[Rfam]
RNA sequence: GGAACUCUUUACGAACGAGCGGCUACGAGCGGGUAGGACUGACUAGUACGAGAGGAACGUUGGUCCGGGAUUGAAAGCGUUGGUGCUUGGUGGUUUAUUGCCAUUGGGGCUUUGCCUUUGUCCUGGGGCUUACGGCUGAACGCCUCUAAGCCGGAAUCCCGUCCCACGACGUCCGCGUCUGCUUUUCCGAGACGGGCGACAGAACGAUUAGGCCCCUCUUCGCUCUUCCCGAGUGACUGGGGUGGUGUGUGUCCGACCUGUAUAUUUCGGCAGGUGUCUUUCGAAAGCAGGAAAAUCUGCUUGCAGACGACUUGGGUUUGUACGAGUCGGGGUGUCGUACUCGGUAGAGCGGCCUGUUGUGGCUGCGAUGCGUUGAGACUUGUCCCUCGACUAGGAGAUUUGU
Numbered sequence: 001g002g003a004a005c006u007c008u009u010u011a012c013g014a015a016c017g018a019g020c021g022g023c024u025a026c027g028a029g030c031g032g033g034u035a036g037g038a039c040u041g042a043c044u045a046g047u048a049c050g051a052g053a054g055g056a057a058c059g060u061u062g063g064u065c066c067g068g069g070a071u072u073g074a075a076a077g078c079g080u081u082g083g084u085g086c087u088u089g090g091u092g093g094u095u096u097a098u099u100g101c102c103a104u105u106g107g108g109g110c111u112u113u114g115c116c117u118u119u120g121u122c123c124u125g126g127g128g129c130u131u132a133c134g135g136c137u138g139a140a141c142g143c144c145u146c147u148a149a150g151c152c153g154g155a156a157u158c159c160c161g162u163c164c165c166a167c168g169a170c171g172u173c174c175g176c177g178u179c180u181g182c183u184u185u186u187c188c189g190a191g192a193c194g195g196g197c198g199a200c201a202g203a204a205c206g207a208u209u210a211g212g213c214c215c216c217u218c219u220u221c222g223c224u225c226u227u228c229c230c231g232a233g234u235g236a237c238u239g240g241g242g243u244g245g246u247g248u249g250u251g252u253c254c255g256a257c258c259u260g261u262a263u264a265u266u267u268c269g270g271c272a273g274g275u276g277u278c279u280u281u282c283g284a285a286a287g288c289a290g291g292a293a294a295a296u297c298u299g300c301u302u303g304c305a306g307a308c309g310a311c312u313u314g315g316g317u318u319u320g321u322a323c324g325a326g327u328c329g330g331g332g333u334g335u336c337g338u339a340c341u342c343g344g345u346a347g348a349g350c351g352g353c354c355u356g357u358u359g360u361g362g363c364u365g366c367g368a369u370g371c372g373u374u375g376a377g378a379c380u381u382g383u384c385c386c387u388c389g390a391c392u393a394g395g396a397g398a399u400u401u402g403u
Base pairs, nucleotide, nucleotide: 021174022173025172026171027170031165032164033163036066037065038064039063040062041061042060043059067124068123069122070121071120075117077115082111083110084109086107088103089102090101091100092099126160127159128158133153134152135151136150137149180289181288182287183286184285185284186283293401294400295399296398297397300314303311325392326391327390328389329388330386331385332384334379335378342372343371346369349366350365351364352363353362